[Rfam]
Source information
A member of the RNA family "c-di-GMP-I riboswitch aptamer" from Vibrio nigripulchritudo, 94 nucleotides long.
RNA sequence: UCACGCACAGGGCAAACCAUUUGAAAAAGUGGGACGCAAAGCUUCCGGCCUAAAUGGAUGUAUAAAAAAUCCAAAUGGUAGCGGGGUUGCCGAU
Numbered sequence: 001u002c003a004c005g006c007a008c009a010g011g012g013c014a015a016a017c018c019a020u021u022u023g024a025a026a027a028a029g030u031g032g033g034a035c036g037c038a039a040a041g042c043u044u045c046c047g048g049c050c051u052a053a054a055u056g057g058a059u060g061u062a063u064a065a066a067a068a069a070u071c072c073a074a075a076u077g078g079u080a081g082c083g084g085g086g087u088u089g090c091c092g093a094u
Base pairs, nucleotide, nucleotide: 012037013036017032018031019030020029021028022027040088041087042086043085045084046083047082048079049078050077055073056072057071058070